[Rfam]
RNA sequence: GUCUGACACGCGCCGACGGUAGCCAGUCUGGCUCCAACAUACGGCCGCGGUGCAAUGAC
Numbered sequence: 001g002u003c004u005g006a007c008a009c010g011c012g013c014c015g016a017c018g019g020u021a022g023c024c025a026g027u028c029u030g031g032c033u034c035c036a037a038c039a040u041a042c043g044g045c046c047g048c049g050g051u052g053c054a055a056u057g058a059c
Stems, first nucleotide, its partner, number of pairs: 007049001009047002013043001015042001018035002021033005
Selenocysteine insertion sequence 3: a 59-nucleotide sequence from Hyphomicrobium facile. The literature on the family includes a 1996 paper in RNA by Huttenhofer et al., "Solution structure of mRNA hairpins promoting selenocysteine incorporation in Escherichia coli and their base-specific interaction with special elongation factor SELB". It is annotated as a cis-regulatory element. The family's consensus secondary structure was predicted with CMfinder.